RNA sequence: AACUCUGUUCGUAGGAACAACGAGAGGCAUAUUUAUUUUAUACUCGACAAGUACCAAUAGGCAACAUGGGA
Numbered sequence: 001a002a003c004u005c006u007g008u009u010c011g012u013a014g015g016a017a018c019a020a021c022g023a024g025a026g027g028c029a030u031a032u033u034u035a036u037u038u039u040a041u042a043c044u045c046g047a048c049a050a051g052u053a054c055c056a057a058u059a060g061g062c063a064a065c066a067u068g069g070g071a
Stems, first nucleotide, its partner, number of pairs: 003022001006019005043070003052059002
Dot-bracket structure: ..(..(((((....)))))..)....................(((......((....))........))).
Notes:
The record is a 71-nucleotide RNA from Anisodus acutangulus, which matches "Plastid-clpP 5UTR RNA" in Rfam. Pairs were carried over by alignment from the consensus structure, which was predicted with LocARNA. The organism belongs to Anisodus, within Eukaryota. The match comes from Rfam's covariance-model search (67 bits). Rfam's curators write: Plastid clpP is a non-coding RNA (ncRNA) recognised in plastids. It was found in the prime untranslated region (5UTR) of a protease complex subunit (clpP) in plastids, suggesting a posible cis-regulatory function.